Shown here is a 59-nucleotide RNA sequence from Arthrobacter psychrolactophilus, a member of the family "msiK RNA". It is annotated as a cis-regulatory element. Lineage of the source: Bacteria > Actinomycetota > Micrococcales > Micrococcaceae > Arthrobacter. The base pairs follow the family's consensus structure, which is taken from published work. The family has 120 seed sequences and 1,374 matches in Rfam 15.1.
RNA sequence: CAUGUUCAACCAUUCACAACGGAUCGUUCGGCACGUACCUGCCGAUGAAGGGAUUUAUU
Dot-bracket structure: .........((.((((...........((((((......)))))))))).)).......
Numbered sequence: 001c002a003u004g005u006u007c008a009a010c011c012a013u014u015c016a017c018a019a020c021g022g023a024u025c026g027u028u029c030g031g032c033a034c035g036u037a038c039c040u041g042c043c044g045a046u047g048a049a050g051g052g053a054u055u056u057a058u059u
Stems, first nucleotide, its partner, number of pairs: 010052002013049004028045006